c-di-GMP-I riboswitch aptamer: an 89-nucleotide RNA sequence from Alicyclobacillus sp. SO9. The family's consensus secondary structure is taken from published work. A search with the family's covariance model found it, with a score of 64 bits.
[Rfam]
Nucleotides: 089
Base pairs, nucleotide, nucleotide: 012038013037017033018032019031020030022029023028041083042082043081044080046079047078048074049073050072055068056067057066058065
Number, partner (000 for none) and nucleotide at each position: 001000a002000a003000u004000u005000g006000g007000a008000a009000a010000a011000g012038g013037c014000a015000a016000a017033c018032c019031a020030a021000u022029u023028a024000g025000a026000a027000a028023u029022g030020u031019u032018g033017g034000g035000g036000c037013g038012c039000a040000a041083a042082g043081c044080c045000a046079a047078a048074g049073u050072c051000u052000a053000a054000g055068g056067a057066u058065c059000c060000g061000c062000c063000u064000u065058g066057g067056u068055c069000u070000a071000u072050g073049a074048c075000u076000g077000c078047u079046u080044g081043g082042u083041u084000g085000c086000c087000g088000a089000u